RNA sequence: UGGCUGUAGCUAAAGGAAUUUCAAAAGAAGUUUACUGGCGGUUGUUGUGAGGUUUUUUAUAAAUCUCUGUCAACACAUCUGCCUACCGAGCUUUUUACAUUU
Numbered sequence: 001u002g003g004c005u006g007u008a009g010c011u012a013a014a015g016g017a018a019u020u021u022c023a024a025a026a027g028a029a030g031u032u033u034a035c036u037g038g039c040g041g042u043u044g045u046u047g048u049g050a051g052g053u054u055u056u057u058u059a060u061a062a063a064u065c066u067c068u069g070u071c072a073a074c075a076c077a078u079c080u081g082c083c084u085a086c087c088g089a090g091c092u093u094u095u096u097a098c099a100u101u102u
Stems, first nucleotide, its partner, number of pairs: 025096008037083003040079003044074004
RNA: Small nucleolar RNA snoR109
Organism: Aquilegia coerulea